[Rfam]
RNA: Bacterial small signal recognition particle RNA
Organism: Pelagibius litoralis
RNA sequence: GUUGGCUGCGGACGUAUCGCUCGCCAACCCGGUCAGAUCCGGAAGGAAGCAGCCGUAACGAGUUUCCGAUGCGGGUCGUUUGUCCAGCCUCCCAC
Number, nucleotide and partner (000 for none) at each position: 001g088002u087003u086004g085005g000006c000007u000008g079009c078010g077011g000012a000013c073014g072015u071016a070017u069018c068019g063020c062021u061022c060023g059024c000025c000026a000027a000028c000029c000030c055031g054032g053033u052034c000035a000036g000037a000038u047039c046040c045041g000042g000043a000044a000045g040046g039047a038048a000049g000050c000051a000052g033053c032054c031055g030056u000057a000058a000059c023060g022061a021062g020063u019064u000065u000066c000067c000068g018069a017070u016071g015072c014073g013074g000075g000076u000077c010078g009079u008080u000081u000082g000083u000084c000085c004086a003087g002088c001089c000090u000091c000092c000093c000094a000095c000